Record summary
The family of this 57-nucleotide RNA from Balaeniceps rex is "Avian HBV RNA encapsidation signal epsilon". Rfam classes the family as a cis-regulatory element. Rfam 15.1 lists 22 matches to the family in 17 species. For this family Rfam cites "Sequence- and structure-specific determinants in the interaction between the RNA encapsidation signal and reverse transcriptase of avian hepatitis B viruses" (Beck and Nassal, J Virol, 1997). NCBI's taxonomy places the organism under Eukaryota, Archelosauria, Neognathae, Aequornithes, Balaeniceps. The match comes from Rfam's covariance-model search (77 bits).
RNA sequence: UGCCAAGGUAUCUUUACGUCCUCAUUGCUGUUGUCUGCAUUGACUGUACCUUUGGUA
Numbered sequence: 001u002g003c004c005a006a007g008g009u010a011u012c013u014u015u016a017c018g019u020c021c022u023c024a025u026u027g028c029u030g031u032u033g034u035c036u037g038c039a040u041u042g043a044c045u046g047u048a049c050c051u052u053u054g055g056u057a
Base pairs, nucleotide, nucleotide: 001057002056003055004054005053006052007050008049009048010047011046018044019043020042027034028033